[Rfam]
RNA sequence: GAGUGCACGGCCGUGGCGAGCCUAAGGGGUUCAACCCCGGAGGCGCAGGGAAACCGACAGCCCGCAGCGGGGAAACCCGCGAGGGGCGGGGUCUGAAAGGGCCCGUAGUCACGGCCGUGCGACCAGAAACCGGGCGAUCUAGCCCUGGGCAGGGCGAAGCGGGGCGAAAGCCCCGUGGAGGCCCGAAGGGGUUCUGAUGUGCAAAUCGUUCCCAUGACCUGGGGCUAGGGGCAAAAGACCAAUCAAGCCCGGUGAUAGCUGGUU
Numbered sequence: 001g002a003g004u005g006c007a008c009g010g011c012c013g014u015g016g017c018g019a020g021c022c023u024a025a026g027g028g029g030u031u032c033a034a035c036c037c038c039g040g041a042g043g044c045g046c047a048g049g050g051a052a053a054c055c056g057a058c059a060g061c062c063c064g065c066a067g068c069g070g071g072g073a074a075a076c077c078c079g080c081g082a083g084g085g086g087c088g089g090g091g092u093c094u095g096a097a098a099g100g101g102c103c104c105g106u107a108g109u110c111a112c113g114g115c116c117g118u119g120c121g122a123c124c125a126g127a128a129a130c131c132g133g134g135c136g137a138u139c140u141a142g143c144c145c146u147g148g149g150c151a152g153g154g155c156g157a158a159g160c161g162g163g164g165c166g167a168a169a170g171c172c173c174c175g176u177g178g179a180g181g182c183c184c185g186a187a188g189g190g191g192u193u194c195u196g197a198u199g200u201g202c203a204a205a206u207c208g209u210u211c212c213c214a215u216g217a218c219c220u221g222g223g224g225c226u227a228g229g230g231g232c233a234a235a236a237g238a239c240c241a242a243u244c245a246a247g248c249c250c251g252g253u254g255a256u257a258g259c260u261g262g263u264u
Stems, first nucleotide, its partner, number of pairs: 005120013020044004026038004048055002060087004067080004090103004123262002126259001130252006139228011150216001152184004159176007188213004194208001196207002230240002